Record summary
This 208-nucleotide RNA sequence from Candidatus Epulonipiscioides saccharophilum belongs to the Rfam family "Group II catalytic intron D1-D4-5". Lineage of the source: Bacteria > Clostridia > Lachnospirales > Lachnospiraceae > Candidatus Epulonipiscioides. It scores 163 bits against the family's covariance model.
RNA sequence: AAGAACUAAUAAUCUGAACAAUCAAAUGAUAGGGUAACGCCUUGAAGGGUUGUCCAUAAUACUCCGAAUGGCAAUCUGUAGGGUAAAAUACAAAUUGUCAUAAGCUCGGUGAAGUCGGUUGAGAGCAUACCCUAAUGCUAAAAACGUUUUAGCAAAGGAAAAGUGAACCAGAGGUGGUCAAGUAUGUGAUAGAUCGGUGGUCUAAAAC
Number, nucleotide and partner (000 for none) at each position: 001a000002a000003g000004a000005a000006c000007u000008a000009a000010u000011a000012a000013u000014c000015u000016g000017a000018a053019c052020a051021a050022u049023c048024a000025a000026a000027u000028g000029a000030u000031a043032g042033g041034g040035u000036a000037a000038c000039g000040c034041c033042u032043u031044g000045a000046a000047g000048g023049g022050u021051u020052g019053u018054c200055c199056a198057u197058a000059a000060u000061a000062c000063u000064c109065c108066g107067a106068a101069u100070g099071g098072c097073a096074a095075u094076c000077u092078g091079u090080a089081g000082g000083g000084u000085a000086a000087a000088a000089u080090a079091c078092a077093a000094a075095u074096u073097g072098u071099c070100a069101u068102a000103a000104g000105c000106u067107c066108g065109g064110u000111g000112a000113a000114g000115u000116c196117g195118g194119u193120u192121g000122a000123g000124a000125g187126c186127a185128u184129a183130c182131c158132c157133u156134a000135a000136u000137g153138c152139u151140a150141a149142a148143a147144a000145c000146g000147u143148u142149u141150u140151a139152g138153c137154a000155a000156a133157g132158g131159a000160a000161a000162a000163g000164u180165g179166a000167a178168c177169c176170a175171g000172a000173g000174g000175u170176g169177g168178u167179c165180a164181a000182g130183u129184a128185u127186g126187u125188g000189a000190u000191a000192g120193a119194u118195c117196g116197g057198u056199g055200g054201u000202c000203u000204a000205a000206a000207a000208c000
Overview: Rfam links the family to the GO term Group II intron splicing. Rfam describes the family as follows. Group II introns are found in rRNA, tRNA and mRNA of organelles in fungi, plants and protists, and also in mRNA in bacteria.